Annotation
Rfam assigns this 43-nucleotide sequence from Beta vulgaris to the family "Plastid-ccsA-ndhD-2 3UTR RNA". It is annotated as a cis-regulatory element. It scores 55 bits against the family's covariance model. The family's consensus secondary structure was predicted with LocARNA. On this family, see Richter et al., Plant Commun 2023: "Retrograde signaling in plants: A critical review focusing on the GUN pathway and beyond". Rfam's curators write: Plastid ccsA-ndhD-2 is a non-coding RNA (ncRNA) recognised in plastids. It was found in the three prime untranslated region (3UTR) of ccsA and ndhD genes, its 3UTR location suggests a role in transcript maturation.
Nucleotides: 043
Stems, first nucleotide, its partner, number of pairs: 004041017
Number, partner (000 for none) and nucleotide at each position: 001000u002000u003000u004041g005040u006039g007038a008037g009036a010035a011034c012033c013032a014031u015030u016029u017028a018027a019026a020025u021000c022000a023000u024000g025020a026019u027018u028017u029016a030015a031014a032013u033012g034011g035010u036009u037008c038007u039006c040005a041004c042000a043000a